The family of this 168-nucleotide sequence from bacterium B13(2017) is "Group II catalytic intron D1-D4-3". A search with the family's covariance model found it, with a score of 82 bits. For this family Rfam cites "The ins and outs of group II introns" (Bonen and Vogel, Trends Genet, 2001).
RNA sequence: UCCAAUGAGGGAUCUGAAGGAAGCUGUAAUCAAAGUUGCUACCUAAAUUUGGUAUGAACCUCAGGUAGGCUUAGAAAGAGGGUAAGGUACCAUUGACUACCAAAGCCCAAUAUCCUUUCCGUAAACUUUCUGGGUAGAAGAGGUAGGUGAGCGACGAAAGAGUGAUUA
Numbered sequence: 001u002c003c004a005a006u007g008a009g010g011g012a013u014c015u016g017a018a019g020g021a022a023g024c025u026g027u028a029a030u031c032a033a034a035g036u037u038g039c040u041a042c043c044u045a046a047a048u049u050u051g052g053u054a055u056g057a058a059c060c061u062c063a064g065g066u067a068g069g070c071u072u073a074g075a076a077a078g079a080g081g082g083u084a085a086g087g088u089a090c091c092a093u094u095g096a097c098u099a100c101c102a103a104a105g106c107c108c109a110a111u112a113u114c115c116u117u118u119c120c121g122u123a124a125a126c127u128u129u130c131u132g133g134g135u136a137g138a139a140g141a142g143g144u145a146g147g148u149g150a151g152c153g154a155c156g157a158a159a160g161a162g163u164g165a166u167u168a
Stems, first nucleotide, its partner, number of pairs: 026166002030161002035155006041148005059143004069135003073131006080108004086101004